[Rfam]
RNA sequence: CAUGGCAAAAGUUGAAUUGGCUGGUGUGGUACAGAGAAGCCAGCUUGUUUUCAUGCUUAUUCCAUG
Dot-bracket structure: (((((.(.((((.((...(((((((((...))......)))))))..)).....)))).).)))))